[Rfam]
RNA sequence: AGCUGGUCCAAGUGCAAUGGUGUUUGCAACUAAUUGAUCACAAACCAAUUACAGAUUUCUUUCUUCCUUGUCCACUCCCACUGCUUCACUUGAUGAGCCUAAA
Dot-bracket structure: .(((.(((.((..(.(.(((.(.....((..((..........................))..))...........)))).)....)..))))).))).....
Shown here is a 103-nucleotide sequence from Aotus nancymaae, a member of the family "Y RNA". From the family's description: Y RNAs are components of the Ro ribonucleoprotein particle (Ro RNP), in association with Ro60 and La proteins. The Y RNAs and Ro60 and La proteins are well conserved, but the function of the Ro RNP is not known. In humans the RNA component can be one of four small RNAs -- hY1, hY3, hY4 and hY5. These small RNAs are predicted to fold into a conserved secondary structure containing three stem structures. The largest of the four, hY1, contains an additional hairpin. This family includes a significant number of annotated pseudogenes and the model is expected to discriminate poorly between real and Y RNA related pseudogenes. A reference for the family is Teunissen et al. (2000), "Conserved features of Y RNAs: a comparison of experimentally derived secondary structures", Nucleic Acids Res. It scores 49 bits against the family's covariance model. NCBI's taxonomy places the organism under Eukaryota, Vertebrata, Theria, Haplorrhini, Aotus. It is annotated as a non-coding RNA gene.